The record is a 62-nucleotide RNA sequence from Nothobranchius furzeri, which matches "mir-737 microRNA precursor family" in Rfam.
[Rfam]
RNA sequence: UGGUUUUUUUAGGUUUUGAUUUUUGUGGUGUCAGAUGAGAAAAUCAAAACCUAAAGAAAGUA
Numbered sequence: 001u002g003g004u005u006u007u008u009u010u011a012g013g014u015u016u017u018g019a020u021u022u023u024u025g026u027g028g029u030g031u032c033a034g035a036u037g038a039g040a041a042a043a044u045c046a047a048a049a050c051c052u053a054a055a056g057a058a059a060g061u062a
Stems, first nucleotide, its partner, number of pairs: 004059021

Rfam 15.1 lists 233 matches to the family in 207 species.